This 241-nucleotide RNA belongs to the Rfam family "permuted transfer-messenger RNA".
From the family's description: Bacterial tmRNA, also known as 10Sa RNA or SsrA, is named for its dual tRNA and mRNA-like properties.
Rfam classes the family as a non-coding RNA gene.

Nucleotides: 241
Stems, first nucleotide, its partner, number of pairs: 001138005014128004026116003030113003036052005053098007139154003
Number, partner (000 for none) and nucleotide at each position: 001138a002137g003136u004135a005134a006000u007000a008000a009000a010000c011000g012000u013000a014128a015127u016126u017125u018000a019000g020000a021000a022000u023000a024000g025000a026116g027115g028114u029000u030113g031112c032111g033000g034000a035000c036052c037051c038050g039049g040048g041000g042000g043000c044000g045000g046000u047000a048040c049039c050038c051037g052036g053098c054097g055096c056095c057094u058093c059092c060000a061000c062000c063000a064000a065000u066000a067000g068000a069000a070000a071000g072000a073000g074000u075000u076000u077000u078000a079000u080000a081000g082000a083000a084000a085000a086000u087000u088000u089000u090000a091000a092059g093058g094057g095056g096055g097054c098053g099000a100000a101000a102000u103000a104000g105000g106000a107000u108000c109000g110000a111032c112031g113030u114028g115027c116026u117000u118000a119000a120000u121000a122000a123000a124000g125017a126016a127015a128014u129000u130000g131000c132000u133000u134005u135004u136003a137002c138001u139154c140153g141152g142000g143000a144000u145000a146000a147000u148000u149000c150000c151000g152141c153140c154139g155000g156000g157000c158000u159000u160000a161000u162000a163000c164000a165000a166000g167000u168000c169000a170000c171000a172000c173000g174000g175000g176000u177000u178000a179000c180000a181000a182000a183000a184000a185000a186000g187000a188000a189000a190000c191000g192000c193000a194000a195000a196000c197000g198000a199000u200000a201000a202000u203000c204000a205000a206000c207000g208000u209000u210000u211000c212000g213000c214000a215000a216000a217000u218000u219000a220000u221000g222000g223000a224000g225000c226000a227000c228000u229000u230000g231000c232000u233000g234000c235000u236000g237000c238000a239000u240000a241000a